[Rfam]
RNA: U7 small nuclear RNA
Organism: Callithrix jacchus
RNA sequence: AAGUGUUACAGCUCUUUUAGAAUUUGUCUAGCAGUCUUUUGAUUUUUGCCGGAAAACCUC
Numbered sequence: 001a002a003g004u005g006u007u008a009c010a011g012c013u014c015u016u017u018u019a020g021a022a023u024u025u026g027u028c029u030a031g032c033a034g035u036c037u038u039u040u041g042a043u044u045u046u047u048g049c050c051g052g053a054a055a056a057c058c059u060c
Stems, first nucleotide, its partner, number of pairs: 034057002037054005043048001